About this RNA: The record is an 85-nucleotide RNA from Channa argus, which matches "Small nucleolar RNA SNORD35" in Rfam. Rfam 15.1 lists 1,842 matches to the family in 634 species. Clan: SNORD35 clan. Its family is annotated with RNA processing and nucleolus in the Gene Ontology. NCBI's taxonomy places the organism under Eukaryota, Chordata, Euteleostomi, Ctenosquamata, Channa. Rfam describes the family as follows. U35 is a C/D box snoRNA located in intron 6 of ribosomal protein L13A and intron 3 of ribosomal protein S11 in humans and at homologous positions in mouse and chicken ribosomal protein genes.
[Rfam]
RNA sequence: UGCAAAUGAUGUUUUUCUCACGAUGGUCUUCCAAGCCUUAAUGGGUACUGACGACAAUGCCUAUUGGCAAAACUGAUGCACUUAU
Numbered sequence: 001u002g003c004a005a006a007u008g009a010u011g012u013u014u015u016u017c018u019c020a021c022g023a024u025g026g027u028c029u030u031c032c033a034a035g036c037c038u039u040a041a042u043g044g045g046u047a048c049u050g051a052c053g054a055c056a057a058u059g060c061c062u063a064u065u066g067g068c069a070a071a072a073c074u075g076a077u078g079c080a081c082u083u084a085u
Stems, first nucleotide, its partner, number of pairs: 001080004
Dot-bracket structure: ((((........................................................................)))).....